[Rfam]
MIR473 microRNA precursor family: an 89-nucleotide RNA sequence from Ziziphus jujuba.
RNA sequence: AUUGCUCACUCUCCCUCAAAGGCUUCAAGCUAAAUACCAAUGCCAACCAUUGUUAGCCUGGGGCCUUAUUGUGGGAGAGUGAACAAAAG
Numbered sequence: 001a002u003u004g005c006u007c008a009c010u011c012u013c014c015c016u017c018a019a020a021g022g023c024u025u026c027a028a029g030c031u032a033a034a035u036a037c038c039a040a041u042g043c044c045a046a047c048c049a050u051u052g053u054u055a056g057c058c059u060g061g062g063g064c065c066u067u068a069u070u071g072u073g074g075g076a077g078a079g080u081g082a083a084c085a086a087a088a089g
Base pairs, nucleotide, nucleotide: 006082007081008080009079010078011077012076013075014074015073017071018070019067020066021065022064023063024062025061026060